This 74-nucleotide RNA from Amborella trichopoda belongs to the Rfam family "Small nucleolar RNA Z155". Rfam classes the family as a C/D-box small nucleolar RNA. A reference for the family is Chen et al. (2003), "The high diversity of snoRNAs in plants: identification and comparative study of 120 snoRNA genes from Oryza sativa", Nucleic Acids Res.
[Rfam]
RNA sequence: AAUUGAUGUGAUGAUAUUUGUGAUCUGAAUAAACGUGUUGACUGCAAUAUCAGACUACAAUUAUCUGAUCAAUC
Numbered sequence: 001a002a003u004u005g006a007u008g009u010g011a012u013g014a015u016a017u018u019u020g021u022g023a024u025c026u027g028a029a030u031a032a033a034c035g036u037g038u039u040g041a042c043u044g045c046a047a048u049a050u051c052a053g054a055c056u057a058c059a060a061u062u063a064u065c066u067g068a069u070c071a072a073u074c
Base pairs, nucleotide, nucleotide: 002073003072004071005070006069